mir-393 microRNA precursor family: a 114-nucleotide RNA sequence from Phaseolus vulgaris. The match comes from Rfam's covariance-model search (87 bits). Rfam 15.1 lists 1,052 matches to the family in 221 species. For this family Rfam cites "Role of microRNAs and other sRNAs of plants in their changing environments" (Kruszka et al., J Plant Physiol, 2012). Pairs were carried over by alignment from the consensus structure.
[Rfam]
RNA sequence: GGUGGAGAGUUCCAAAGGGAUCGCAUUGAUCUGAUUCUUGUGGGUGGAUUCUGCACGAUUUGCUUCACAGCUUCACUUGUUAUUGGAUCAUGCGAUCCCUUAGGAACUUUCUAU
Number, nucleotide and partner (000 for none) at each position: 001g000002g114003u113004g112005g111006a110007g000008a108009g107010u106011u105012c104013c103014a000015a101016a100017g099018g098019g097020a096021u095022c000023g093024c092025a091026u090027u000028g089029a088030u087031c086032u085033g000034a000035u000036u082037c000038u000039u000040g000041u000042g000043g000044g000045u000046g000047g000048a000049u000050u000051c000052u000053g000054c000055a000056c000057g000058a000059u000060u000061u000062g000063c000064u000065u000066c000067a000068c000069a000070g000071c000072u000073u000074c000075a000076c000077u000078u000079g000080u000081u000082a036083u000084u000085g032086g031087a030088u029089c028090a026091u025092g024093c023094g000095a021096u020097c019098c018099c017100u016101u015102a000103g013104g012105a011106a010107c009108u008109u000110u006111c005112u004113a003114u002